[Rfam]
RNA: Bacterial large subunit ribosomal RNA, nucleotides 2067 to 2653
RNA sequence: CCCGCGACAGGACGGAAAGACCCCAUGGAGCUUUACUGUAGCUUGAUAUUGAGUGUUUGUACUGCUUGUACAGGAUAGGUAGGAGCCGUAGAAGUCGGAACGCUAGUUUCGACGGAGGCGUUGGUGGGAUACUACCCUUGCAUUAUGACCACUCUAACCCGCAGCACUGAACGUGCUGGGAGACAGUGUCAGGUGGGCAGUUUGACUGGGGCGGUCGCCUCCCAAAAGGUAACGGAGGCGCCCAAAGGUUCGCUCAGAAUGGUUGGAAAUCAUUCGCAGAGUGUAAAGGCACAAGCGAGCUUGACUGCGAGACAGACAGGUCGAGCAGGGACGAAAGUCGGGCUUAGUGAUCCGGUGGUUCCGUAUGGAAGGGCCAUCGCUCAACGGAUAAAAGCUACCCUGGGGAUAACAGGCUUAUCUCCCCCAAGAGUCCACAUCGACGGGGAGGUUUGGCACCUCGAUGUCGGCUCAUCGCAUCCUGGGGCUGUAGUCGGUCCCAAGGGUUGGGCUGUUCGCCCAUUAAAGCGGUACGCGAGCUGGGUUCAGAACGUCGUGAGACAGUUCGGUCCCUAUCCGUCGCGGGCGUA
Numbered sequence: 001c002c003c004g005c006g007a008c009a010g011g012a013c014g015g016a017a018a019g020a021c022c023c024c025a026u027g028g029a030g031c032u033u034u035a036c037u038g039u040a041g042c043u044u045g046a047u048a049u050u051g052a053g054u055g056u057u058u059g060u061a062c063u064g065c066u067u068g069u070a071c072a073g074g075a076u077a078g079g080u081a082g083g084a085g086c087c088g089u090a091g092a093a094g095u096c097g098g099a100a101c102g103c104u105a106g107u108u109u110c111g112a113c114g115g116a117g118g119c120g121u122u123g124g125u126g127g128g129a130u131a132c133u134a135c136c137c138u139u140g141c142a143u144u145a146u147g148a149c150c151a152c153u154c155u156a157a158c159c160c161g162c163a164g165c166a167c168u169g170a171a172c173g174u175g176c177u178g179g180g181a182g183a184c185a186g187u188g189u190c191a192g193g194u195g196g197g198c199a200g201u202u203u204g205a206c207u208g209g210g211g212c213g214g215u216c217g218c219c220u221c222c223c224a225a226a227a228g229g230u231a232a233c234g235g236a237g238g239c240g241c242c243c244a245a246a247g248g249u250u251c252g253c254u255c256a257g258a259a260u261g262g263u264u265g266g267a268a269a270u271c272a273u274u275c276g277c278a279g280a281g282u283g284u285a286a287a288g289g290c291a292c293a294a295g296c297g298a299g300c301u302u303g304a305c306u307g308c309g310a311g312a313c314a315g316a317c318a319g320g321u322c323g324a325g326c327a328g329g330g331a332c333g334a335a336a337g338u339c340g341g342g343c344u345u346a347g348u349g350a351u352c353c354g355g356u357g358g359u360u361c362c363g364u365a366u367g368g369a370a371g372g373g374c375c376a377u378c379g380c381u382c383a384a385c386g387g388a389u390a391a392a393a394g395c396u397a398c399c400c401u402g403g404g405g406a407u408a409a410c411a412g413g414c415u416u417a418u419c420u421c422c423c424c425c426a427a428g429a430g431u432c433c434a435c436a437u438c439g440a441c442g443g444g445g446a447g448g449u450u451u452g453g454c455a456c457c458u459c460g461a462u463g464u465c466g467g468c469u470c471a472u473c474g475c476a477u478c479c480u481g482g483g484g485c486u487g488u489a490g491u492c493g494g495u496c497c498c499a500a501g502g503g504u505u506g507g508g509c510u511g512u513u514c515g516c517c518c519a520u521u522a523a524a525g526c527g528g529u530a531c532g533c534g535a536g537c538u539g540g541g542u543u544c545a546g547a548a549c550g551u552c553g554u555g556a557g558a559c560a561g562u563u564c565g566g567u568c569c570c571u572a573u574c575c576g577u578c579g580c581g582g583g584c585g586u587a
Stems, first nucleotide, its partner, number of pairs: 001583008010575003014570002022404004027400002029396005035201004042193007051154005057148005063142003068137001078136005085119003094113008159180002162178006204216004217239006240385001242342002248300006254280002257275006281290002305328004311322003330339003353379007361372002413454003417451001418448007428438002465540001466538004470532001471529005478503002481498006505519005546564004550559003